Overview: The family of this 98-nucleotide RNA sequence from Morella rubra is "MIR403 microRNA precursor family". For this family Rfam cites "High throughput approaches reveal splicing of primary microRNA transcripts and tissue specific expression of mature microRNAs in Vitis vinifera" (Mica et al., BMC Genomics, 2009). Taxonomically the source falls in Morella (Eukaryota, Streptophyta, Euphyllophyta, eudicotyledons).

RNA sequence: ACACAUCCCAAGUUUGUGCGUGAAUCAAACCCCAUCGGAGCCGUCCAUUUUAUUGCAUCCAACGGUGUUAGAUUCACGCACAAACUCGUGAUUUGUCU
Dot-bracket structure: (((.(((...((((((((((((((((.(((.((..............................)).))).))))))))))))))))...))).)))..